Small nucleolar RNA R16: an 82-nucleotide sequence from Cephalotus follicularis.
RNA sequence: AAAAGCAGAUGAUGUUAAAAUUCUUAUCCUACACACUGAAUUGUUAUGUAGACUACAUCUCCGCUUAUUAUCUGAUGCUUUC
Numbered sequence: 001a002a003a004a005g006c007a008g009a010u011g012a013u014g015u016u017a018a019a020a021u022u023c024u025u026a027u028c029c030u031a032c033a034c035a036c037u038g039a040a041u042u043g044u045u046a047u048g049u050a051g052a053c054u055a056c057a058u059c060u061c062c063g064c065u066u067a068u069u070a071u072c073u074g075a076u077g078c079u080u081u082c
Stems, first nucleotide, its partner, number of pairs: 003080005